[Rfam]
Rfam assigns this 74-nucleotide sequence from Rhodanobacter sp. ANJX3 to the family "SAH (S-adenosyl-L-homocysteine) riboswitch aptamer".
Nucleotides: 074
Base pairs, nucleotide, nucleotide: 003044004043005042006041007040008039021032022031023030024029
Number, partner (000 for none) and nucleotide at each position: 001000u002000c003044c004043g005042c006041c007040g008039a009000g010000g011000g012000g013000c014000g015000c016000u017000g018000c019000g020000a021032c022031c023030g024029u025000u026000c027000a028000a029024a030023c031022g032021g033000c034000c035000a036000g037000g038000c039008u040007c041006g042005g043004u044003g045000c046000g047000g048000c049000a050000a051000g052000c053000u054000u055000c056000a057000c058000a059000a060000c061000g062000g063000c064000g065000c066000c067000c068000g069000g070000u071000u072000a073000a074000c

Taxonomically the source falls in Rhodanobacter (Bacteria, Pseudomonadota, Gammaproteobacteria, Lysobacterales).